Bacterial large subunit ribosomal RNA: a 257-nucleotide part of an RNA from Peptoclostridium acidaminophilum. Pairs were carried over by alignment from the consensus structure, which is taken from published work. Its family is annotated with structural constituent of ribosome and ribosome in the Gene Ontology.
RNA sequence: GGAAAUUUGAAGGGAGCUGUCCCUAGUACGAGAGGACCGGGAUGGACGUACCGCUGGUGUACCAGUUGUCGUGCCAACGGCACAGCUGGGUAGCUAUGUAUGGAAUGGAUAAGCGCUGAAGGCAUCUAAGCGCGAAGCCAACCUUAAGAUAAGAUUUCCCACUUUUAUAGGUAAGAUCCCAGGAAGACUACCUGGUUGAUAGGCCCAGGGUGUAAGUGCAGCAAUGCAUUCAGCUGAUGGGUACUAAUAGAUCGAGG
Numbered sequence: 001g002g003a004a005a006u007u008u009g010a011a012g013g014g015a016g017c018u019g020u021c022c023c024u025a026g027u028a029c030g031a032g033a034g035g036a037c038c039g040g041g042a043u044g045g046a047c048g049u050a051c052c053g054c055u056g057g058u059g060u061a062c063c064a065g066u067u068g069u070c071g072u073g074c075c076a077a078c079g080g081c082a083c084a085g086c087u088g089g090g091u092a093g094c095u096a097u098g099u100a101u102g103g104a105a106u107g108g109a110u111a112a113g114c115g116c117u118g119a120a121g122g123c124a125u126c127u128a129a130g131c132g133c134g135a136a137g138c139c140a141a142c143c144u145u146a147a148g149a150u151a152a153g154a155u156u157u158c159c160c161a162c163u164u165u166u167a168u169a170g171g172u173a174a175g176a177u178c179c180c181a182g183g184a185a186g187a188c189u190a191c192c193u194g195g196u197u198g199a200u201a202g203g204c205c206c207a208g209g210g211u212g213u214a215a216g217u218g219c220a221g222c223a224a225u226g227c228a229u230u231c232a233g234c235u236g237a238u239g240g241g242u243a244c245u246a247a248u249a250g251a252u253c254g255a256g257g
Stems, first nucleotide, its partner, number of pairs: 001159008011145004017045007047102005055096003062089005067082006106140003113133005162170002172255001175253004179195005200246003203242005209235002216229005